Background:
The family of this 159-nucleotide RNA sequence from Rhodospirillum centenum is "6S / SsrS RNA". The family has 150 seed sequences and 5,006 matches in Rfam 15.1.
RNA sequence: AGGCGGCUGCGCGGUGCGUCAGGUCGCAUAAUCCCCGGGGCCGAUACCCAUCCUCUAGGGAGCUGUCCCUGCCGACGCCCUGGUGUCGGACACACGGCGCCCACCUGCUGAUGCAGGCCGCGGAGGAUACGCAAUACCAACGGCCGUCGCGGCUGUCCU
Numbered sequence: 001a002g003g004c005g006g007c008u009g010c011g012c013g014g015u016g017c018g019u020c021a022g023g024u025c026g027c028a029u030a031a032u033c034c035c036c037g038g039g040g041c042c043g044a045u046a047c048c049c050a051u052c053c054u055c056u057a058g059g060g061a062g063c064u065g066u067c068c069c070u071g072c073c074g075a076c077g078c079c080c081u082g083g084u085g086u087c088g089g090a091c092a093c094a095c096g097g098c099g100c101c102c103a104c105c106u107g108c109u110g111a112u113g114c115a116g117g118c119c120g121c122g123g124a125g126g127a128u129a130c131g132c133a134a135u136a137c138c139a140a141c142g143g144c145c146g147u148c149g150c151g152g153c154u155g156u157c158c159u
Stems, first nucleotide, its partner, number of pairs: 002157010012146004017142003032127003035123001037121001039119004058102003062098005072089005